MIR1435 microRNA precursor family: a 197-nucleotide sequence from Dichanthelium oligosanthes. Pairs were carried over by alignment from the consensus structure, which was predicted with RNAalifold. Gene Ontology terms of the family: miRNA-mediated post-transcriptional gene silencing and RISC complex. Lineage of the source: Eukaryota > Streptophytina > Embryophyta > Liliopsida > Dichanthelium.
[Rfam]
RNA sequence: UAGUUUUGUCCCAAGUUAAUUUUCUCUAACUUUGACUAAGUUUAUAAAAAAAACAUAUUAACAUCUAUAAUAACAAAUAAAUGUACUAUCAAUAAAUAUUUCAUGUUGGAUUUAAUGAAACUAAUUUGAUGUUGUAGAUGCUAGUGCAUUUUUCUAUAAACUUGGUCAAAGAGAAGUUUGACUUGGGACAACUAAAA
Numbered sequence: 001u002a003g004u005u006u007u008g009u010c011c012c013a014a015g016u017u018a019a020u021u022u023u024c025u026c027u028a029a030c031u032u033u034g035a036c037u038a039a040g041u042u043u044a045u046a047a048a049a050a051a052a053a054c055a056u057a058u059u060a061a062c063a064u065c066u067a068u069a070a071u072a073a074c075a076a077a078u079a080a081a082u083g084u085a086c087u088a089u090c091a092a093u094a095a096a097u098a099u100u101u102c103a104u105g106u107u108g109g110a111u112u113u114a115a116u117g118a119a120a121c122u123a124a125u126u127u128g129a130u131g132u133u134g135u136a137g138a139u140g141c142u143a144g145u146g147c148a149u150u151u152u153u154c155u156a157u158a159a160a161c162u163u164g165g166u167c168a169a170a171g172a173g174a175a176g177u178u179u180g181a182c183u184u185g186g187g188a189c190a191a192c193u194a195a196a197a
Base pairs, nucleotide, nucleotide: 006191007190008189009188011186012185013184014183015182016181017180018179019178021176022175023174024173025172026171031170032169033168034167035166045156046155048153049152050151051150052149056146057145058144060142062140063139064138065137066136067135068134069133074128075127076126077125078124